[Rfam]
Shown here is a 117-nucleotide sequence from Albimonas pacifica, a member of the family "ALIL pseudoknot". Rfam 15.1 lists 2,146 matches to the family in 1,098 species. It scores 115 bits against the family's covariance model. The base pairs follow the family's consensus structure, which is taken from published work.
RNA sequence: CGCGUAUUUCGCCCAGGCGGAGCUCGACCGCCGGUCGAAGUCAUGAUCGCCUUCAUCGACGAUCAUCGCGUGGAACAUGGCGUCGAGCCGAUCUGCCGGGUUCUGCCGAUCGCGCCA
Numbered sequence: 001c002g003c004g005u006a007u008u009u010c011g012c013c014c015a016g017g018c019g020g021a022g023c024u025c026g027a028c029c030g031c032c033g034g035u036c037g038a039a040g041u042c043a044u045g046a047u048c049g050c051c052u053u054c055a056u057c058g059a060c061g062a063u064c065a066u067c068g069c070g071u072g073g074a075a076c077a078u079g080g081c082g083u084c085g086a087g088c089c090g091a092u093c094u095g096c097c098g099g100g101u102u103c104u105g106c107c108g109a110u111c112g113c114g115c116c117a
Base pairs, nucleotide, nucleotide: 016032017031018030019029020028078117079116080115081114082113089112090111092109093108095106096105098103